Record summary:
This 35-nucleotide sequence belongs to the Rfam family "L31-Firmicutes ribosomal protein leader". For this family Rfam cites "Discovery of 20 novel ribosomal leader candidates in bacteria and archaea" (Eckert and Weinberg, BMC Microbiol, 2020). The family's consensus secondary structure is taken from published work.
RNA sequence: CUUUAAAUCCGCAUGUGAUUUAAGGCGGAAGGGAG
Numbered sequence: 001c002u003u004u005a006a007a008u009c010c011g012c013a014u015g016u017g018a019u020u021u022a023a024g025g026c027g028g029a030a031g032g033g034a035g
Base pairs, nucleotide, nucleotide: 001025002024003023004022005021006020007019008018